[Rfam]
RNA: Small nucleolar RNA SNORA73 family
RNA sequence: CCAACGUGGAUAUCCCGGGAGGUCACUCUCCCCGGGCUCUGUCCUAGUGGCGAACGGGAGCUUAGGGCAUUGCCCGGUGAUGUACAGUCCCUUUCCACAACGUUGGAGAUGAAGCUGGGCUUUCGAGUCUGCGCCUGCAUAUUCCUACGACUUCUCAGAGUCCCGUGGACCAUGACUGAGGAGACAAACCAUGCAGGAAACAAAA
Number, nucleotide and partner (000 for none) at each position: 001c106002c105003a104004a103005c102006g101007u100008g044009g043010a042011u041012a040013u000014c036015c035016c034017g000018g029019g028020a027021g026022g000023u000024c000025a000026c021027u020028c019029u018030c000031c000032c000033c000034g016035g015036g014037c000038u000039c000040u012041g011042u010043c009044c008045u000046a000047g098048u097049g096050g095051c000052g000053a000054a000055c000056g091057g090058g089059a088060g085061c000062u000063u082064a081065g078066g000067g000068c000069a000070u000071u000072g000073c000074c000075c000076g000077g000078u065079g000080a000081u064082g063083u000084a000085c060086a000087g000088u059089c058090c057091c056092u000093u000094u000095c050096c049097a048098c047099a000100a007101c006102g005103u004104u003105g002106g001107a000108g000109a000110u000111g000112a000113a000114g000115c000116u000117g000118g000119g000120c000121u000122u000123u000124c000125g000126a000127g000128u000129c000130u000131g000132c000133g000134c197135c196136u195137g194138c193139a192140u191141a000142u000143u000144c000145c000146u000147a000148c000149g000150a000151c183152u182153u181154c180155u179156c178157a000158g000159a000160g170161u169162c168163c167164c000165g000166u000167g163168g162169a161170c160171c000172a000173u000174g000175a000176c000177u000178g156179a155180g154181g153182a152183g151184a000185c000186a000187a000188a000189c000190c000191a140192u139193g138194c137195a136196g135197g134198a000199a000200a000201c000202a000203a000204a000205a000